Rfam assigns this 131-nucleotide sequence from Vitis vinifera to the family "MIR845_2 microRNA precursor family".
RNA sequence: AGAAUGCACAUUAAUUAUCCUUGGGGCCAAGAAAUAAACAAAAACCCUACAAAAACAAGUUAACACACCCUAGAAUGGUUCUAGCACAAUUACUAACUUAUUUCUCUAAUACCAGUCAAAGGGAAAAACCC
Number, nucleotide and partner (000 for none) at each position: 001a000002g000003a000004a000005u000006g000007c000008a000009c121010a000011u119012u118013a000014a116015u115016u114017a000018u000019c000020c000021u000022u108023g107024g106025g105026g104027c000028c000029a101030a000031g099032a098033a000034a000035u000036a000037a000038a000039c000040a000041a000042a000043a000044a000045c000046c000047c000048u086049a000050c000051a000052a000053a080054a079055a000056c077057a076058a000059g000060u073061u072062a071063a000064c000065a000066c000067a000068c000069c000070c000071u062072a061073g060074a000075a000076u057077g056078g000079u054080u053081c000082u000083a000084g000085c000086a048087c000088a000089a000090u000091u000092a000093c000094u000095a000096a000097c000098u032099u031100a000101u029102u000103u000104c026105u025106c024107u023108a022109a000110u000111a000112c000113c000114a016115g015116u014117c000118a012119a011120a000121g009122g000123g000124a000125a000126a000127a000128a000129c000130c000131c000
The family's consensus secondary structure was predicted with WAR.